[Rfam]
Nucleotides: 072
Stems, first nucleotide, its partner, number of pairs: 001071007010025004027043005048064001050062003
Number, partner (000 for none) and nucleotide at each position: 001071u002070c003069c004068g005067u006066u007065g008000u009000g010025g011024u012023c013022u014000a015000g016000u017000g018000g019000u020000u021000a022013g023012g024011a025010u026000u027043u028042a029041u030040g031039g032000c033000u034000c035000u036000c037000a038000c039031c040030c041029a042028u043027a044000a045000g046000g047000c048064c049000g050062g051061g052060g053000u054000u055000c056000g057000a058000u059000u060052c061051c062050c063000a064048g065007c066006a067005a068004c069003g070002g071001a072000a

Shown here is a 72-nucleotide RNA from Caenorhabditis nigoni, a member of the family "tRNA". Gene Ontology term of the family: triplet codon-amino acid adaptor activity. Rfam classes the family as a transfer RNA. The family's consensus secondary structure is taken from published work. A search with the family's covariance model found it, with a score of 59 bits.